[Rfam]
RNA sequence: UCAGCAGGCUAGACAGCCGCCGCGUAACAUGUUUACGGGGAGGAAAGUCCGGGCUCCGCAGAGCAGAAUGCCGGCUAACGGCCGGGCGCCGCGAGGCGACGGAAAGUGGAACAGAAAGCAUAACCGCCGAUGGCCGUGGCAACACGGCACAGGUAAGGGUGAAAUGGUGCGGUAAGAGCGCACCGUGCCGUUGGCAACAACGUGUAGCAGGCCAAACCCCAUUCGGAGCAAGACCAAACAGAAUGCGCUGACGCGGCUCGCCGAGCAUUCGGGUAGGUUGCUUGAGCAUGCUGGCAACGGCAUGCCUAGAGGAAUGGCUGUCCAAGACAGAACCCGGCUUACCGGCUUGUCUGAUGUG
Numbered sequence: 001u002c003a004g005c006a007g008g009c010u011a012g013a014c015a016g017c018c019g020c021c022g023c024g025u026a027a028c029a030u031g032u033u034u035a036c037g038g039g040g041a042g043g044a045a046a047g048u049c050c051g052g053g054c055u056c057c058g059c060a061g062a063g064c065a066g067a068a069u070g071c072c073g074g075c076u077a078a079c080g081g082c083c084g085g086g087c088g089c090c091g092c093g094a095g096g097c098g099a100c101g102g103a104a105a106g107u108g109g110a111a112c113a114g115a116a117a118g119c120a121u122a123a124c125c126g127c128c129g130a131u132g133g134c135c136g137u138g139g140c141a142a143c144a145c146g147g148c149a150c151a152g153g154u155a156a157g158g159g160u161g162a163a164a165u166g167g168u169g170c171g172g173u174a175a176g177a178g179c180g181c182a183c184c185g186u187g188c189c190g191u192u193g194g195c196a197a198c199a200a201c202g203u204g205u206a207g208c209a210g211g212c213c214a215a216a217c218c219c220c221a222u223u224c225g226g227a228g229c230a231a232g233a234c235c236a237a238a239c240a241g242a243a244u245g246c247g248c249u250g251a252c253g254c255g256g257c258u259c260g261c262c263g264a265g266c267a268u269u270c271g272g273g274u275a276g277g278u279u280g281c282u283u284g285a286g287c288a289u290g291c292u293g294g295c296a297a298c299g300g301c302a303u304g305c306c307u308a309g310a311g312g313a314a315u316g317g318c319u320g321u322c323c324a325a326g327a328c329a330g331a332a333c334c335c336g337g338c339u340u341a342c343c344g345g346c347u348u349g350u351c352u353g354a355u356g357u358g
Base pairs, nucleotide, nucleotide: 001354002353003352004351005349006348007347008346009345010344012322013321014320015319016318017317018316020040021039023037024036025035026034027033045340046339047338049337050336051335052334053333054228055227056226057225061259062258063257064256066224067223068222069221070220071085072084073083074082075081086100087098088097089096090095101219102218106217107216108213109212124158125157126154127153128152131149132148134146166184167183168182169181170180171179185208186206187205188204189202190201191200192199193198232279233278234277235276241270242269243268244267245266246265253261254260286305287304288303289302290301291300292299293298